[Rfam]
RNA sequence: GACAGGAAAGAUGACAAUAUGUUGGCAUAGCAGGUUUUUAAGUCAACAGCUAUGCCAACAUCUUGCCUCCUCUCCAGCUC
Dot-bracket structure: ....(((.((..(.(((.(((.(((((((((.................))))))))).))).))).)..)).))).....
RNA: mir-31 microRNA precursor family